[Rfam]
RNA: Small nucleolar RNA snR60/Z15/Z230/Z193/J17
Organism: Cetraspora pellucida
RNA sequence: CUCAAUCUAAUGAUGAUAAUAUAGUUCAUCUGAAUUUAUUAUUCAUGUUGUCCUUUCGCUCCUAUCUGAAAUUAUA
Numbered sequence: 001c002u003c004a005a006u007c008u009a010a011u012g013a014u015g016a017u018a019a020u021a022u023a024g025u026u027c028a029u030c031u032g033a034a035u036u037u038a039u040u041a042u043u044c045a046u047g048u049u050g051u052c053c054u055u056u057c058g059c060u061c062c063u064a065u066c067u068g069a070a071a072u073u074a075u076a
Base pairs, nucleotide, nucleotide: 004073005072006071008070